[Rfam]
RNA sequence: GUCCGUGAACCGCGAGGAAACGUCUCCCCUUGCGGAUCCGGCAAAUACAAGCAAAAGGAG
Numbered sequence: 001g002u003c004c005g006u007g008a009a010c011c012g013c014g015a016g017g018a019a020a021c022g023u024c025u026c027c028c029c030u031u032g033c034g035g036a037u038c039c040g041g042c043a044a045a046u047a048c049a050a051g052c053a054a055a056a057g058g059a060g
Stems, first nucleotide, its partner, number of pairs: 003041003007038002010035008